The record is a 63-nucleotide RNA from Propionispora sp. 2/2-37, which matches "Fluoride riboswitch aptamer (crcB RNA motif)" in Rfam.
A reference for the family is Baker et al. (2012), "Widespread genetic switches and toxicity resistance proteins for fluoride", Science.
RNA sequence: AACGAAAAGAGCGAUGGAGUUCGCUCGAAUCCUGGCUGGCCAGGUGAUGACUCCUACCGUAUG
Numbered sequence: 001a002a003c004g005a006a007a008a009g010a011g012c013g014a015u016g017g018a019g020u021u022c023g024c025u026c027g028a029a030u031c032c033u034g035g036c037u038g039g040c041c042a043g044g045u046g047a048u049g050a051c052u053c054c055u056a057c058c059g060u061a062u063g
Stems, first nucleotide, its partner, number of pairs: 010025004016054006031044004